[Rfam]
RNA sequence: AUGGUCGGCCAGGCGGUCGCGUUGGCUUCGGCCUGCGAGGAACGUCCGGGCUCCGAAGAGCAGCGUGGUGGGUAACGCCCACCCGGGGCAACCCGCGAGAAAGUGCAACAGAAAGCAAGUCCACCGGCCUGGCCGGCAAGGAGUGAAACGGUGGUGUAAGAGACCACCAGCGUCGCGUGUGAGCGCGGCGGCUAGGCAAACCUCACGCGGAGCAAGACCAAGUAGGAAGACACUGAGGCGGCUCGUCUCGUCUUCGGGUUGGUUGCUAGAGCCGUGCGGCAACGCACGGCCCAGAUAGAUGACCGUCCACGACAGAACCCGGCGUAUCGGCCGGCCAUCUCG
Numbered sequence: 001a002u003g004g005u006c007g008g009c010c011a012g013g014c015g016g017u018c019g020c021g022u023u024g025g026c027u028u029c030g031g032c033c034u035g036c037g038a039g040g041a042a043c044g045u046c047c048g049g050g051c052u053c054c055g056a057a058g059a060g061c062a063g064c065g066u067g068g069u070g071g072g073u074a075a076c077g078c079c080c081a082c083c084c085g086g087g088g089c090a091a092c093c094c095g096c097g098a099g100a101a102a103g104u105g106c107a108a109c110a111g112a113a114a115g116c117a118a119g120u121c122c123a124c125c126g127g128c129c130u131g132g133c134c135g136g137c138a139a140g141g142a143g144u145g146a147a148a149c150g151g152u153g154g155u156g157u158a159a160g161a162g163a164c165c166a167c168c169a170g171c172g173u174c175g176c177g178u179g180u181g182a183g184c185g186c187g188g189c190g191g192c193u194a195g196g197c198a199a200a201c202c203u204c205a206c207g208c209g210g211a212g213c214a215a216g217a218c219c220a221a222g223u224a225g226g227a228a229g230a231c232a233c234u235g236a237g238g239c240g241g242c243u244c245g246u247c248u249c250g251u252c253u254u255c256g257g258g259u260u261g262g263u264u265g266c267u268a269g270a271g272c273c274g275u276g277c278g279g280c281a282a283c284g285c286a287c288g289g290c291c292c293a294g295a296u297a298g299a300u301g302a303c304c305g306u307c308c309a310c311g312a313c314a315g316a317a318c319c320c321g322g323c324g325u326a327u328c329g330g331c332c333g334g335c336c337a338u339c340u341c342g
Stems, first nucleotide, its partner, number of pairs: 001338010011327001012307007020037003024033003042325003046322005051212004058244004063208005068082005083097001084095004098203002103201002105197002120142002124136005150168006170192001171190008216264004226255006235249005271290008